[Rfam]
RNA: ffh sRNA
Organism: Sphingomonas prati
RNA sequence: GCGCCCACGGGUGCCCGCCGGCCAGCGAGUUUUCGCCCGCCGGCGUUUUGCG
Numbered sequence: 001g002c003g004c005c006c007a008c009g010g011g012u013g014c015c016c017g018c019c020g021g022c023c024a025g026c027g028a029g030u031u032u033u034c035g036c037c038c039g040c041c042g043g044c045g046u047u048u049u050g051c052g
Base pairs, nucleotide, nucleotide: 016045017044018043019042020041021040022039025036026035027034028033